[Rfam]
RNA: c-di-GMP-II-GAG riboswitch aptamer
RNA sequence: ACUCAACGGGUGCGCGAUGACCCGCCGGGCGCACGAUGGUCGCCCUUGCCCGGCGGAGAGCAGAGGCGAAACCGGCCCCGUCCUCU
Number, nucleotide and partner (000 for none) at each position: 001a086002c000003u000004c000005a000006a081007c080008g079009g078010g077011u000012g000013c000014g061015c060016g000017a000018u000019g000020a000021c000022c056023c055024g054025c053026c052027g051028g050029g049030c000031g000032c000033a000034c000035g000036a000037u000038g073039g072040u069041c068042g067043c066044c065045c000046u000047u000048g000049c029050c028051c027052g026053g025054c024055g023056g022057a000058g000059a000060g015061c014062a000063g000064a000065g044066g043067c042068g041069a040070a000071a000072c039073c038074g000075g000076c000077c010078c009079c008080g007081u006082c000083c000084u000085c000086u001